Background:
A member of the RNA family "mir-10 microRNA precursor family" from Myotis brandtii, 69 nucleotides long. The base pairs follow the family's consensus structure, which was predicted with PFOLD.
RNA sequence: UGCCACAAACCCGUAGAUCCGAACUUGUGGUGACAGUCACACAAGUUUGCAUCUAUAGGUAUGUGUCUG
Numbered sequence: 001u002g003c004c005a006c007a008a009a010c011c012c013g014u015a016g017a018u019c020c021g022a023a024c025u026u027g028u029g030g031u032g033a034c035a036g037u038c039a040c041a042c043a044a045g046u047u048u049g050c051a052u053c054u055a056u057a058g059g060u061a062u063g064u065g066u067c068u069g
Stems, first nucleotide, its partner, number of pairs: 002067001004065004010059002015054004020049010
A reference for the family is Lee and Ambros (2001), "An extensive class of small RNAs in Caenorhabditis elegans", Science.
Rfam links the family to the GO terms miRNA-mediated post-transcriptional gene silencing and RISC complex.